RNA sequence: UUGCAGCCAAUUAAAUUGACUGCACUCUUUUCCCCAUGAGGGCCCGGUGUGCAAUGUCUGCAAACGGCAGCCUCCUGGGUAUAGUGUACGCAGCCUGUUGCCUGUAUGGGUUGCCCUAAGGGACCUUGGAGACAGCC
Numbered sequence: 001u002u003g004c005a006g007c008c009a010a011u012u013a014a015a016u017u018g019a020c021u022g023c024a025c026u027c028u029u030u031u032c033c034c035c036a037u038g039a040g041g042g043c044c045c046g047g048u049g050u051g052c053a054a055u056g057u058c059u060g061c062a063a064a065c066g067g068c069a070g071c072c073u074c075c076u077g078g079g080u081a082u083a084g085u086g087u088a089c090g091c092a093g094c095c096u097g098u099u100g101c102c103u104g105u106a107u108g109g110g111u112u113g114c115c116c117u118a119a120g121g122g123a124c125c126u127u128g129g130a131g132a133c134a135g136c137c
Base pairs, nucleotide, nucleotide: 002053003052004051005050019048020047021046022045025042026041027040028039078125079124080123091113092112093111094110095109096108
The record is a 137-nucleotide sequence from Balaenoptera musculus, which matches "Small nucleolar RNA SNORA70" in Rfam.
Pairs were carried over by alignment from the consensus structure, which was predicted with PFOLD.
Taxonomically the source falls in Balaenoptera (Eukaryota, Eumetazoa, Dipnotetrapodomorpha, Laurasiatheria).
The family's RNA type in Rfam is H/ACA-box small nucleolar RNA.
On this family, see Charette and Gray, IUBMB Life 2000: "Pseudouridine in RNA: what, where, how, and why".
The family has 43 seed sequences and 5,173 matches in Rfam 15.1.
Gene Ontology terms of the family: nucleolus and RNA processing.
From the family's description: snoRNA U70 seems to be exclusive to mammals and is a member of the H/ACA class of snoRNA which contain H (ANANNA) and ACA box motifs. H/ACA box snoRNAs are involved in the conversion of uridines to pseudouridines (5-ribosyluracil) a constituent of structural RNAs (transfer, ribosomal, small nuclear, and small nucleolar).